mir-84 microRNA precursor family: a 76-nucleotide RNA from Caenorhabditis briggsae.
RNA sequence: AUAACAUCUGAGGUAGUUUGCAAUGCUGUCGACGUAACUGAAAAGUCAACAUCAUUCCAACUUCCUCGGCUGUUCA
Numbered sequence: 001a002u003a004a005c006a007u008c009u010g011a012g013g014u015a016g017u018u019u020g021c022a023a024u025g026c027u028g029u030c031g032a033c034g035u036a037a038c039u040g041a042a043a044a045g046u047c048a049a050c051a052u053c054a055u056u057c058c059a060a061c062u063u064c065c066u067c068g069g070c071u072g073u074u075c076a
Stems, first nucleotide, its partner, number of pairs: 003074003010067004015062003022056004027051003

Annotation: The family has 8 seed sequences and 33 matches in Rfam 15.1. Rfam's curators put it in the seed alignment.